RNA sequence: AUAGACUUGUCGGAGUGCCAAAGGGCUGAGAUCGCGAAAGCGGGAUCCGUAGAACCUGAUUAGAUUAACAUCUGCGAAGGGAACAAGUGAGUACUGGUA
Numbered sequence: 001a002u003a004g005a006c007u008u009g010u011c012g013g014a015g016u017g018c019c020a021a022a023g024g025g026c027u028g029a030g031a032u033c034g035c036g037a038a039a040g041c042g043g044g045a046u047c048c049g050u051a052g053a054a055c056c057u058g059a060u061u062a063g064a065u066u067a068a069c070a071u072c073u074g075c076g077a078a079g080g081g082a083a084c085a086a087g088u089g090a091g092u093a094c095u096g097g098u099a
Stems, first nucleotide, its partner, number of pairs: 006087005011049004016043001017026003033042003055080003061074004
RNA: TPP riboswitch aptamer (THI element)
Organism: Colwellia chukchiensis